[Rfam]
RNA: mir-2_2 microRNA precursor family
RNA sequence: ACCUUUUGCACCGCAGUCAAUAUUGGCUGAUGGCAUUGUUUUAUUGUCACAGCCAGUAUUGAUGAACGGGGUAAUAGG
Dot-bracket structure: .(((.((((.(((..((((((((((((((.(((((.........)))))))))))))))))))...))).)))).)))